A member of the RNA family "radC RNA" from Corticibacter populi, 142 nucleotides long.
RNA sequence: AUUCUCACGCCAUGCGCCGCUGAUCCGUCAGCGCCAUGCCAGCAGCCACGGUCUUCCAGGCUGCGAUGCGGUCUCCCGCACCGACCGAACCAGUCCGCGCCGCAUCACACCGGCGGACGCACGCCAGCCAUGGCGUCGAUGC
Numbered sequence: 001a002u003u004c005u006c007a008c009g010c011c012a013u014g015c016g017c018c019g020c021u022g023a024u025c026c027g028u029c030a031g032c033g034c035c036a037u038g039c040c041a042g043c044a045g046c047c048a049c050g051g052u053c054u055u056c057c058a059g060g061c062u063g064c065g066a067u068g069c070g071g072u073c074u075c076c077c078g079c080a081c082c083g084a085c086c087g088a089a090c091c092a093g094u095c096c097g098c099g100c101c102g103c104a105u106c107a108c109a110c111c112g113g114c115g116g117a118c119g120c121a122c123g124c125c126a127g128c129c130a131u132g133g134c135g136u137c138g139a140u141g142c
Base pairs, nucleotide, nucleotide: 011038012037013036014035019032020031021030022029023028042064043063044062045061046060047059050086051085052084053083065082067080068079069078070077071076113142114141115140121136122135123134124133125132126131

The base pairs follow the family's consensus structure, which is taken from published work. The source organism's lineage runs through Bacteria, Pseudomonadati, Betaproteobacteria, Comamonadaceae and Corticibacter.